[Rfam]
RNA sequence: AGUGGAAGUUGAAUCAAUUGCAGGCAAAUGAAAUAUCUUUUGUCUGUGCUUUUCAGACUUCCUAGAAUAAAGUGAAGGUCUCUGUCUGGUUUAGAACAGCCAACUAAGCCAGAUCGUUCCCCUUUGCACAUU
Numbered sequence: 001a002g003u004g005g006a007a008g009u010u011g012a013a014u015c016a017a018u019u020g021c022a023g024g025c026a027a028a029u030g031a032a033a034u035a036u037c038u039u040u041u042g043u044c045u046g047u048g049c050u051u052u053u054c055a056g057a058c059u060u061c062c063u064a065g066a067a068u069a070a071a072g073u074g075a076a077g078g079u080c081u082c083u084g085u086c087u088g089g090u091u092u093a094g095a096a097c098a099g100c101c102a103a104c105u106a107a108g109c110c111a112g113a114u115c116g117u118u119c120c121c122c123u124u125u126g127c128a129c130a131u132u
Stems, first nucleotide, its partner, number of pairs: 004062003009056004019048007030039002074125005082116001084114003088110007
RNA: Small Cajal body specific RNA 3